Guanidine-II riboswitch aptamer (mini-ykkC): a 45-nucleotide RNA from Paraburkholderia ribeironis.
About the family: Simpler in structure and has fewer highly conserved nucleotide positions than the ykkC-yxkD leader.
Rfam 15.1 lists 1,589 matches to the family in 1,229 species.
Lineage of the source: Bacteria > Betaproteobacteria > Burkholderiales > Burkholderiaceae > Paraburkholderia.
[Rfam]
RNA sequence: UCGUAAGGACGACCUUACGCCAAUACGACGAACGGGGACGGCCCC
Numbered sequence: 001u002c003g004u005a006a007g008g009a010c011g012a013c014c015u016u017a018c019g020c021c022a023a024u025a026c027g028a029c030g031a032a033c034g035g036g037g038a039c040g041g042c043c044c045c
Base pairs, nucleotide, nucleotide: 002019003018004017005016006015007014008013034045035044036043037042